The family of this 117-nucleotide RNA from Flexivirga endophytica is "SAM (S-adenosyl methionine) riboswitch aptamer". The organism belongs to Flexivirga, within Bacteria. For this family Rfam cites "The aptamer core of SAM-IV riboswitches mimics the ligand-binding site of SAM-I riboswitches" (Weinberg et al., RNA, 2008). Its Rfam clan is "SAM clan". SAM-IV is a mRNA element that regulates gene expression via direct sensing of S-adenosylmethionine (SAM or AdoMet). SAM-IV riboswitches share conserved nucleotide positions with the previously described SAM-I riboswitches sequence analysis and molecular recognition experiments suggest that SAM-I and SAM-IV riboswitches share similar ligand binding sites, but have different scaffolds. The family has 40 seed sequences and 2,360 matches in Rfam 15.1.
RNA sequence: GGUCAUGAGUGUCAGCGUCAAGCCCCGGCUCGCUGACCGGCAACCCUCCUCCGCGGUGGGGUGCCCCGGGUGAGGACCAGGCCACCGGUGCAGAUCGCCGCGUGGCAAGCGCGGACA
Numbered sequence: 001g002g003u004c005a006u007g008a009g010u011g012u013c014a015g016c017g018u019c020a021a022g023c024c025c026c027g028g029c030u031c032g033c034u035g036a037c038c039g040g041c042a043a044c045c046c047u048c049c050u051c052c053g054c055g056g057u058g059g060g061g062u063g064c065c066c067c068g069g070g071u072g073a074g075g076a077c078c079a080g081g082c083c084a085c086c087g088g089u090g091c092a093g094a095u096c097g098c099c100g101c102g103u104g105g106c107a108a109g110c111g112c113g114g115a116c117a
Stems, first nucleotide, its partner, number of pairs: 001078004009038001011037006021030002039065003044061003048056002081106005086100005